A member of the RNA family "Flavo-1 RNA", 69 nucleotides long.
RNA sequence: CCCUAGCCCAGAUAGUAAUGGAAAUCCCACGCUUUUGGGCGUGGAUUGCAAUGGAUAGCUGGAAAUAGC
Dot-bracket structure: ........(((.((...((...((((.((((((....))))))))))...))...)).)))........